Rfam assigns this 120-nucleotide sequence from Phyllostomus discolor to the family "Small nucleolar RNA SNORA61". ACA61 is a member of the H/ACA class of snoRNA that guide the sites of modification of uridines to pseudouridines. The organism belongs to Phyllostomus, within Eukaryota. Rfam classes the family as an H/ACA-box small nucleolar RNA. Pairs were carried over by alignment from the consensus structure, which was predicted with PFOLD. Its family is annotated with RNA processing and nucleolus in the Gene Ontology.
[Rfam]
RNA sequence: ACCCUCCGGUUCCCUUUCCCAUCAGAUCUGAACACCGGCCUUGGUGGUCAUAAAAGGAGGGAAAGUAAUACUGAUGCUGGCCUCACAGCUCUUUAGCAUGUGGGCUAGUUUUAAACAAGG
Numbered sequence: 001a002c003c004c005u006c007c008g009g010u011u012c013c014c015u016u017u018c019c020c021a022u023c024a025g026a027u028c029u030g031a032a033c034a035c036c037g038g039c040c041u042u043g044g045u046g047g048u049c050a051u052a053a054a055a056g057g058a059g060g061g062a063a064a065g066u067a068a069u070a071c072u073g074a075u076g077c078u079g080g081c082c083u084c085a086c087a088g089c090u091c092u093u094u095a096g097c098a099u100g101u102g103g104g105c106u107a108g109u110u111u112u113a114a115a116c117a118a119g120g
Stems, first nucleotide, its partner, number of pairs: 003060005019047005025040001027038002077108007092098001